[Rfam]
Shown here is a 209-nucleotide RNA from Erysipelothrix sp. HDW6B, a member of the family "T-box leader". The family's RNA type in Rfam is cis-regulatory leader. The literature on the family includes a 1994 paper in J Bacteriol by Grundy et al., "Interaction between the acceptor end of tRNA and the T box stimulates antitermination in the Bacillus subtilis tyrS gene: a new role for the discriminator base".
RNA sequence: CUUAAAUCGUUGAACAAGAGAGUAAACUUAAGAAUGCCUCAAGCGAGUCAGGGUUGGUGGAAGCCUGAUAGGAAACAAUAAGUCGAACCGCACUUGGGAGAUAUUAGAUUGAACUUAGUAGGUCUAAUCGCCAACCUAGCGUUAUAGGAAAGUGGUUUAUCAUACAUGAUAAGCAAUUAGAGUGGCACCGCGUUAAUGACGUCUCUAGA
Numbered sequence: 001c002u003u004a005a006a007u008c009g010u011u012g013a014a015c016a017a018g019a020g021a022g023u024a025a026a027c028u029u030a031a032g033a034a035u036g037c038c039u040c041a042a043g044c045g046a047g048u049c050a051g052g053g054u055u056g057g058u059g060g061a062a063g064c065c066u067g068a069u070a071g072g073a074a075a076c077a078a079u080a081a082g083u084c085g086a087a088c089c090g091c092a093c094u095u096g097g098g099a100g101a102u103a104u105u106a107g108a109u110u111g112a113a114c115u116u117a118g119u120a121g122g123u124c125u126a127a128u129c130g131c132c133a134a135c136c137u138a139g140c141g142u143u144a145u146a147g148g149a150a151a152g153u154g155g156u157u158u159a160u161c162a163u164a165c166a167u168g169a170u171a172a173g174c175a176a177u178u179a180g181a182g183u184g185g186c187a188c189c190g191c192g193u194u195a196a197u198g199a200c201g202u203c204u205c206u207a208g209a
Stems, first nucleotide, its partner, number of pairs: 007101002015096004026083005037071001047069006104127007129141003155174007179206004190202005
Gene Ontology term of the family: tRNA binding.
Uncharged tRNA acts as the effector for transcription antitermination of genes in the T-box leader family.
It scores 128 bits against the family's covariance model.